[Rfam]
RNA sequence: CGGGAUCCGUCCCGUAAAGGAAUGUAGCUCAAAAUUUGAGCUGAACCUUGGU
Numbered sequence: 001c002g003g004g005a006u007c008c009g010u011c012c013c014g015u016a017a018a019g020g021a022a023u024g025u026a027g028c029u030c031a032a033a034a035u036u037u038g039a040g041c042u043g044a045a046c047c048u049u050g051g052u
Base pairs, nucleotide, nucleotide: 001014002013003012004011005010018048019047020046026042027041028040029039030038
The record is a 52-nucleotide sequence from Methanosphaerula palustris, which matches "eL15-Euryarchaeota ribosomal protein leader" in Rfam. It is annotated as a cis-regulatory leader. It is one of the family's seed sequences.